[Rfam]
RNA: Group II catalytic intron D1-D4-6
Nucleotides: 221
Stems, first nucleotide, its partner, number of pairs: 010035004017029002020026001021189001023187002037089004043084004047079002049074001051072009108215001109213001111212006130206001132204004136163003141157004168200007177191002
Number, partner (000 for none) and nucleotide at each position: 001000a002000g003000a004000g005000u006000c007000g008000u009000a010035c011034a012033g013032g014000a015000a016000a017029g018028g019000a020026u021189u022000a023187g024186c025000g026020a027000a028018c029017c030000a031000c032013c033012c034011u035010g036000u037089c038088c039087c040086c041000g042000a043084g044083u045082c046081a047079u048078g049074c050000a051072c052071u053070g054069g055068c056067a057066g058065u059064c060000g061000u062000g063000a064059g065058g066057c067056u068055g069054u070053u071052g072051g073000c074049g075000a076000a077000g078048c079047g080000u081046u082045g083044a084043c085000a086040g087039g088038g089037g090000c091000a092000c093000c094000u095000g096000c097000g098000g099000g100000c101000u102000g103000g104000g105000u106000a107000u108215u109213g110000a111212g112211c113210u114209g115208c116207g117000a118000a119000a120000u121000a122000a123000u124000c125000g126000c127000a128000a129000a130206u131000c132204g133203g134202g135201u136163g137162c138161c139000g140000a141157c142156g143155c144154u145000g146000u147000u148000c149000a150000a151000c152000a153000a154144a155143g156142c157141g158000g159000a160000a161138g162137g163136c164000c165000a166000c167000c168200u169199u170198g171197a172196c173195g174194g175000g176000a177191g178190c179000g180000u181000u182000a183000a184000g185000c186024g187023c188000c189021a190178g191177c192000g193000a194174c195173c196172g197171u198170c199169g200168a201135a202134c203133c204132c205000u206130g207116c208115g209114c210113a211112g212111u213109c214000u215108g216000a217000a218000g219000c220000c221000c